[Rfam]
RNA: Streptomyces-metH RNA
RNA sequence: CCGCCCCGCCCGACGGAUCUCCUUGGCGACAGCGAUGAGGGUGGCGAGUACCGUGGCAUCGAGUCUGCCGGUCGUCCUCCGGCAGCUAAGCCGACAGCCGUCGCACCUCAAGGGAGCCCUUUCAUG
Dot-bracket structure: .............................................................(((..((((.........)))).)))..((.(((....)))))......................